[Rfam]
RNA sequence: CUUAGGUGCAUUGUAGUUGCAUUGCAUGUUAUUCAAAGUGCAGUGUCUCUCCAGUGCAACUUAG
Numbered sequence: 001c002u003u004a005g006g007u008g009c010a011u012u013g014u015a016g017u018u019g020c021a022u023u024g025c026a027u028g029u030u031a032u033u034c035a036a037a038g039u040g041c042a043g044u045g046u047c048u049c050u051c052c053a054g055u056g057c058a059a060c061u062u063a064g
Stems, first nucleotide, its partner, number of pairs: 001064002004061001006060001007058007015050002019046001021044007
A member of the RNA family "mir-33 microRNA precursor family" from Tribolium castaneum, 64 nucleotides long. Rfam's curators put it in the seed alignment. Lineage of the source: Eukaryota > Panarthropoda > Pancrustacea > Insecta > Tribolium.